[Rfam]
RNA: Glycine riboswitch aptamer
RNA sequence: AAGCGGCGAUCUGGAAAGUGGCGGCAAGGCGGGUGUCCGGCCUGUCCGCCCACCGACGGGGGAAGCGGGGGCGGCGCAGCGACGCCAUUCCCGUGAAACUCUCAGGUCCCAUGACAGAGGGGAAGCA
Numbered sequence: 001a002a003g004c005g006g007c008g009a010u011c012u013g014g015a016a017a018g019u020g021g022c023g024g025c026a027a028g029g030c031g032g033g034u035g036u037c038c039g040g041c042c043u044g045u046c047c048g049c050c051c052a053c054c055g056a057c058g059g060g061g062g063a064a065g066c067g068g069g070g071g072c073g074g075c076g077c078a079g080c081g082a083c084g085c086c087a088u089u090c091c092c093g094u095g096a097a098a099c100u101c102u103c104a105g106g107u108c109c110c111a112u113g114a115c116a117g118a119g120g121g122g123a124a125g126c127a
Base pairs, nucleotide, nucleotide: 007121010118011117012116013115020050021049022048023047052107053106054105055103056102059101060100061099065094066093067092068091069090070089071088